This 89-nucleotide RNA from Nyssa sinensis belongs to the Rfam family "small nucleolar RNA snoR114". Lineage of the source: Eukaryota > Streptophyta > Tracheophyta > Magnoliopsida > Nyssa. By type it is a C/D-box small nucleolar RNA. The literature on the family includes a 2009 paper in Nucleic Acids Res by Chen and Wu, "Mining small RNA sequencing data: a new approach to identify small nucleolar RNAs in Arabidopsis". Its family is annotated with RNA processing and nucleolus in the Gene Ontology.

[Rfam]
RNA sequence: GAGCUGUGAAGAGACUUUGCGCUCCAUGUGAUGACAGGGUCUUCACGAUCGUCUGAUUAUCGGACGAAAACUAUGGCGCAUCUGAGCUC
Number, nucleotide and partner (000 for none) at each position: 001g089002a088003g087004c086005u000006g000007u000008g000009a000010a000011g000012a000013g000014a000015c000016u000017u000018u000019g000020c000021g000022c000023u000024c000025c000026a000027u000028g000029u000030g000031a000032u000033g000034a000035c000036a000037g000038g000039g000040u000041c000042u000043u000044c000045a000046c000047g000048a000049u000050c000051g000052u000053c000054u000055g000056a000057u000058u000059a000060u000061c000062g000063g000064a000065c000066g000067a000068a000069a000070a000071c000072u000073a000074u000075g000076g000077c000078g000079c000080a000081u000082c000083u000084g000085a000086g004087c003088u002089c001